[Rfam]
RNA sequence: GAAUCUAGUCAGCUUAAUCUGAGCUUUUGCCUAGAGGGUGAAGCUUGAGAACGGAGGAACCAAAUUUUGGGGGCGUACCGAAUAGUUUUGGAGGGCAUCUCUCAGCCCUAGCCCGUCAGCUAACUCCGUCAGCCUUGAGAGAAGACUA
Numbered sequence: 001g002a003a004u005c006u007a008g009u010c011a012g013c014u015u016a017a018u019c020u021g022a023g024c025u026u027u028u029g030c031c032u033a034g035a036g037g038g039u040g041a042a043g044c045u046u047g048a049g050a051a052c053g054g055a056g057g058a059a060c061c062a063a064a065u066u067u068u069g070g071g072g073g074c075g076u077a078c079c080g081a082a083u084a085g086u087u088u089u090g091g092a093g094g095g096c097a098u099c100u101c102u103c104a105g106c107c108c109u110a111g112c113c114c115g116u117c118a119g120c121u122a123a124c125u126c127c128g129u130c131a132g133c134c135u136u137g138a139g140a141g142a143a144g145a146c147u148a
Stems, first nucleotide, its partner, number of pairs: 012133003018050003051129006061070001071114003079090004093108004